[Rfam]
RNA sequence: AUGUUACGCUGCAUGGCGGCUGACUUGGUUCGAAUAUCGAUGAAGGACGUGGCAAGCUGCGAAAAUUCCGGGGUAGGUGCAAGCAGCCUUUGAACCCGGAGUCUCCUAAUAGGACUUCCUAGUCUAAGACUAUUCGCAUUAGCGAAGGUGGACGGCCCGAAUUGAAACAUCUUAGUAGGGCCAGGAAAAGAAAGCAAUCGCGAUUCCCUUAGUAAAGGCGAUCGAAAGGGGAACAGGACAAACCGAAUCCCUUAUUGAAAGAUAAGGGAGAUGUGGGGUUCGGACCCGCGCUCAGCCUAACUUCUCAAGCCGAAGUGAUCUGGAAAGAUUCACGACAAAGGGUGAUAGUCCCGUAGGGGUAAAGAAGAAGGUUGAUAUCGGGUAUCCAGAGUACCGCUGGUUGAAAAUCCAGUGGGAAUGUGGGGGUCACUAACCCCUAAUCCUAAAUAUAAUUCGAGUCCGAUAGCGCACUAGUACGGUGACGGAAAGUCGAAAAGCAUCCUUAACAGGAGCUGAAAAGAGCCUAAAACCAUGCAGUUAUAGGUCGGUAAGGCGCAUGCUUGCAUGUGUUUUGCCGUCCGUUUUGAAACACGC
Numbered sequence: 001a002u003g004u005u006a007c008g009c010u011g012c013a014u015g016g017c018g019g020c021u022g023a024c025u026u027g028g029u030u031c032g033a034a035u036a037u038c039g040a041u042g043a044a045g046g047a048c049g050u051g052g053c054a055a056g057c058u059g060c061g062a063a064a065a066u067u068c069c070g071g072g073g074u075a076g077g078u079g080c081a082a083g084c085a086g087c088c089u090u091u092g093a094a095c096c097c098g099g100a101g102u103c104u105c106c107u108a109a110u111a112g113g114a115c116u117u118c119c120u121a122g123u124c125u126a127a128g129a130c131u132a133u134u135c136g137c138a139u140u141a142g143c144g145a146a147g148g149u150g151g152a153c154g155g156c157c158c159g160a161a162u163u164g165a166a167a168c169a170u171c172u173u174a175g176u177a178g179g180g181c182c183a184g185g186a187a188a189a190g191a192a193a194g195c196a197a198u199c200g201c202g203a204u205u206c207c208c209u210u211a212g213u214a215a216a217g218g219c220g221a222u223c224g225a226a227a228g229g230g231g232a233a234c235a236g237g238a239c240a241a242a243c244c245g246a247a248u249c250c251c252u253u254a255u256u257g258a259a260a261g262a263u264a265a266g267g268g269a270g271a272u273g274u275g276g277g278g279u280u281c282g283g284a285c286c287c288g289c290g291c292u293c294a295g296c297c298u299a300a301c302u303u304c305u306c307a308a309g310c311c312g313a314a315g316u317g318a319u320c321u322g323g324a325a326a327g328a329u330u331c332a333c334g335a336c337a338a339a340g341g342g343u344g345a346u347a348g349u350c351c352c353g354u355a356g357g358g359g360u361a362a363a364g365a366a367g368a369a370g371g372u373u374g375a376u377a378u379c380g381g382g383u384a385u386c387c388a389g390a391g392u393a394c395c396g397c398u399g400g401u402u403g404a405a406a407a408u409c410c411a412g413u414g415g416g417a418a419u420g421u422g423g424g425g426g427u428c429a430c431u432a433a434c435c436c437c438u439a440a441u442c443c444u445a446a447a448u449a450u451a452a453u454u455c456g457a458g459u460c461c462g463a464u465a466g467c468g469c470a471c472u473a474g475u476a477c478g479g480u481g482a483c484g485g486a487a488a489g490u491c492g493a494a495a496a497g498c499a500u501c502c503u504u505a506a507c508a509g510g511a512g513c514u515g516a517a518a519a520g521a522g523c524c525u526a527a528a529a530c531c532a533u534g535c536a537g538u539u540a541u542a543g544g545u546c547g548g549u550a551a552g553g554c555g556c557a558u559g560c561u562u563g564c565a566u567g568u569g570u571u572u573u574g575c576c577g578u579c580c581g582u583u584u585u586g587a588a589a590c591a592c593g594c
Stems, first nucleotide, its partner, number of pairs: 008538009022524001023490002027461002029458006035451002044107004048061003067100006076088003111120003133146005153184001154182005164171002194201002205232005216222001235444004243276003253264004285382004293374004310357002315331001317330004340352003394415007422438005477484002547576013580593003
The record is a 594-nucleotide part of an RNA from a Candidatus Aenigmatarchaeota archaeon, which matches "Archaeal large subunit ribosomal RNA" in Rfam. Taxonomically the source falls in Candidatus Aenigmatarchaeota (Archaea, Nanobdellati). The match comes from Rfam's covariance-model search (2272 bits).